[Rfam]
RNA sequence: CGUGUGGUGCUUGUGCAGGGCUAAUCCUGGCACGGGAGAGCGACACGGCCUUAACUGAGGU
Numbered sequence: 001c002g003u004g005u006g007g008u009g010c011u012u013g014u015g016c017a018g019g020g021c022u023a024a025u026c027c028u029g030g031c032a033c034g035g036g037a038g039a040g041c042g043a044c045a046c047g048g049c050c051u052u053a054a055c056u057g058a059g060g061u
Stems, first nucleotide, its partner, number of pairs: 001047005007041002010036006